A member of the RNA family "Lysine riboswitch aptamer" from Leptotrichia sp. oral taxon 215, 180 nucleotides long.
RNA sequence: UACAAAGAUAGAGGUGCAGGUAUUAAAAGUAGGCUUAUGGAGAAAAGUCAAUUCUGUGAAAUAAACUGAAAGGAAUAACUGCCGAAGUGCAAAGAGUGACUUUCUUUGUUGCUGGGGCUAUGGAGAAUAUCCAUAGAACUGUCAUUAUCUUAUAAUGGAUAAUGUUGCGCUGUCAGGUAU
Numbered sequence: 001u002a003c004a005a006a007g008a009u010a011g012a013g014g015u016g017c018a019g020g021u022a023u024u025a026a027a028a029g030u031a032g033g034c035u036u037a038u039g040g041a042g043a044a045a046a047g048u049c050a051a052u053u054c055u056g057u058g059a060a061a062u063a064a065a066c067u068g069a070a071a072g073g074a075a076u077a078a079c080u081g082c083c084g085a086a087g088u089g090c091a092a093a094g095a096g097u098g099a100c101u102u103u104c105u106u107u108g109u110u111g112c113u114g115g116g117g118c119u120a121u122g123g124a125g126a127a128u129a130u131c132c133a134u135a136g137a138a139c140u141g142u143c144a145u146u147a148u149c150u151u152a153u154a155a156u157g158g159a160u161a162a163u164g165u166u167g168c169g170c171u172g173u174c175a176g177g178u179a180u
Stems, first nucleotide, its partner, number of pairs: 007174005016082004021077004032067002035064004086113003089109008114140002118136007143164006
Notes:
Rfam's curators write: Riboswitches are metabolite binding domains within certain messenger RNAs that serve as precision sensors for their corresponding targets. The family's consensus secondary structure is taken from published work. The organism belongs to Leptotrichia sp. oral taxon 215, within Bacteria.